[Rfam]
RNA sequence: GUGCAUCCAGGAGGAUUUGAACCCGCAAAUUUACCAAUUAUGAGUGGGGCACUUUAACUAUUCAGUCAUGGAUGC
Numbered sequence: 001g002u003g004c005a006u007c008c009a010g011g012a013g014g015a016u017u018u019g020a021a022c023c024c025g026c027a028a029a030u031u032u033a034c035c036a037a038u039u040a041u042g043a044g045u046g047g048g049g050c051a052c053u054u055u056a057a058c059u060a061u062u063c064a065g066u067c068a069u070g071g072a073u074g075c
Stems, first nucleotide, its partner, number of pairs: 003075006010026001013023002040069003044066002047063003051059001
Dot-bracket structure: ..((((((.(..((.......))..).............(((.((.(((.(.......).))).)))))))))))

The family of this 75-nucleotide RNA from Hordeum vulgare is "Plastid-ycf2 5UTR RNA". From the family's description: Plastid ycf2 is a non-coding RNA (ncRNA) recognised in plastids. A search with the family's covariance model found it, with a score of 82 bits. The family's RNA type in Rfam is cis-regulatory element.